[Rfam]
RNA sequence: CGAUGUCAAAGGCAAACCUACUCGAAAGGGAGGGACGCAAAGCCACGGGCCUAAGGUAAUACUAUGGCAGCCGAGUUCCCAAA
Number, nucleotide and partner (000 for none) at each position: 001c000002g000003a000004u000005g000006u000007c000008a000009a000010a000011g000012g038013c037014a000015a000016a000017c033018c032019u031020a000021c030022u029023c028024g000025a000026a000027a000028g023029g022030g021031a019032g018033g017034g000035a000036c000037g013038c012039a000040a000041a077042g076043c075044c000045a000046c073047g072048g071049g068050c067051c066052u000053a000054a000055g000056g062057u061058a000059a000060u000061a057062c056063u000064a000065u000066g051067g050068c049069a000070g000071c048072c047073g046074a000075g043076u042077u041078c000079c000080c000081a000082a000083a000
Rfam assigns this 83-nucleotide RNA sequence from Paenibacillus foliorum to the family "c-di-GMP-I riboswitch aptamer". Pairs were carried over by alignment from the consensus structure, which is taken from published work. Its family is annotated with cyclic-di-GMP binding in the Gene Ontology. NCBI's taxonomy places the organism under Bacteria, Bacillota, Bacilli, Caryophanales, Paenibacillus.